[Rfam]
Nucleotides: 131
Stems, first nucleotide, its partner, number of pairs: 001045006008039001010038003033059003051083004069115004088111006100127006
Number, partner (000 for none) and nucleotide at each position: 001045g002044a003043c004042c005041a006040g007000a008039g009000u010038a011037c012036g013000g014000g015000c016000g017000g018000g019000c020000u021000u022000u023000a024000c025000a026000g027000c028000g029000u030000c031000a032000a033059c034058a035057g036012c037011g038010u039008c040006c041005u042004g043003g044002u045001u046000g047000a048000g049000u050000a051083g052082c053081g054080g055000c056000a057035c058034u059033g060000g061000u062000g063000g064000g065000a066000a067000a068000g069115g070114g071113u072112c073000u074000g075000c076000a077000a078000c079000a080054c081053c082052g083051c084000g085000c086000a087000g088111a089110u090109g091108g092107a093106u094000g095000g096000g097000g098000u099000a100127g101126a102125u103124a104123g105122c106093g107092u108091c109090c110089a111088u112072g113071g114070c115069c116000c117000g118000a119000a120000c121000g122105g123104c124103u125102g126101u127100c128000a129000a130000a131000g